Group II catalytic intron D1-D4-7: a 134-nucleotide RNA from Parashewanella spongiae.
NCBI's taxonomy places the organism under Bacteria, Pseudomonadati, Gammaproteobacteria, Shewanellaceae, Parashewanella.
On this family, see Lehmann and Schmidt, Crit Rev Biochem Mol Biol 2003: "Group II introns: structure and catalytic versatility of large natural ribozymes".
The pairing is the family consensus, mapped onto this sequence.
Rfam links the family to the GO term Group II intron splicing.
From the family's description: Group II introns are found in rRNA, tRNA and mRNA of organelles in fungi, plants and protists, and also in mRNA in bacteria.
RNA sequence: CCAUCUGUGUCACCAGAUGACCCUAGGGCUCUGAAUAAAGUAGCGAGCCUGACAAUGUAGCAAAGUCUAUUUAUUAGACGGGAAACGAAUCGUGAGAGGACGUUCCUCCUGAUAACCACAAAUCGGGUAAGCGC
Numbered sequence: 001c002c003a004u005c006u007g008u009g010u011c012a013c014c015a016g017a018u019g020a021c022c023c024u025a026g027g028g029c030u031c032u033g034a035a036u037a038a039a040g041u042a043g044c045g046a047g048c049c050u051g052a053c054a055a056u057g058u059a060g061c062a063a064a065g066u067c068u069a070u071u072u073a074u075u076a077g078a079c080g081g082g083a084a085a086c087g088a089a090u091c092g093u094g095a096g097a098g099g100a101c102g103u104u105c106c107u108c109c110u111g112a113u114a115a116c117c118a119c120a121a122a123u124c125g126g127g128u129a130a131g132c133g134c
Base pairs, nucleotide, nucleotide: 002019003018004017005016006015007014027049028048029047030046031045032040065079066078067077068076069075081106082105083104084103090097091096108127109126110125111124112123113122
Dot-bracket structure: .((((((......)))))).......((((((.......)....)))))...............(((((.....))))).((((.....((....)).....)))).((((((........)))))).......